[Rfam]
RNA sequence: UCCAUCCGGGGUAAACCCGUCGAAAGGCGGGGGCACAAAGCCACGGGUCUACGGCCGGUCGGCCAGGAUCGCCGGGCUGCUGGGA
Numbered sequence: 001u002c003c004a005u006c007c008g009g010g011g012u013a014a015a016c017c018c019g020u021c022g023a024a025a026g027g028c029g030g031g032g033g034c035a036c037a038a039a040g041c042c043a044c045g046g047g048u049c050u051a052c053g054g055c056c057g058g059u060c061g062g063c064c065a066g067g068a069u070c071g072c073c074g075g076g077c078u079g080c081u082g083g084g085a
Base pairs, nucleotide, nucleotide: 001085003082004081011036012035016031017030018029019028020027021026034071039078040077041076042075044074045073046072047069048068049067
Shown here is an 85-nucleotide sequence from Caldinitratiruptor microaerophilus, a member of the family "c-di-GMP-I-GGC riboswitch aptamer".
A search with the family's covariance model found it, with a score of 64 bits.
A reference for the family is Kulshina et al. (2009), "Recognition of the bacterial second messenger cyclic diguanylate by its cognate riboswitch", Nat Struct Mol Biol.
Lineage of the source: Bacteria > Bacillota > Clostridia > Eubacteriales > Caldinitratiruptor.
Its Rfam clan is "c-di-GMP_I riboswitch clan".